[Rfam]
Nucleotides: 094
Stems, first nucleotide, its partner, number of pairs: 013047002016045001018043002022094003026090001029041003051083007
Number, partner (000 for none) and nucleotide at each position: 001000u002000g003000a004000a005000a006000a007000a008000a009000u010000a011000a012000u013047g014046g015000c016045g017000a018043c019042u020000a021000u022094a023093g024092c025000c026090g027000g028000a029041g030040c031039a032000u033000u034000c035000a036000c037000g038000u039031u040030g041029u042019g043018g044000c045016c046014c047013c048000u049000g050000u051083u052082a053081g054080g055079u056078u057077c058000u059000u060000a061000a062000a063000u064000u065000u066000g067000c068000g069000a070000a071000u072000c073000u074000c075000u076000u077057g078056a079055a080054u081053c082052u083051a084000u085000g086000a087000a088000a089000a090026c091000u092024g093023c094022u

The record is a 94-nucleotide RNA from Sphenodon punctatus, which matches "Mammalian CPEB3 ribozyme" in Rfam. Taxonomically the source falls in Sphenodon (Eukaryota, Eumetazoa, Euteleostomi, Amniota). Pairs were carried over by alignment from the consensus structure, which is taken from published work.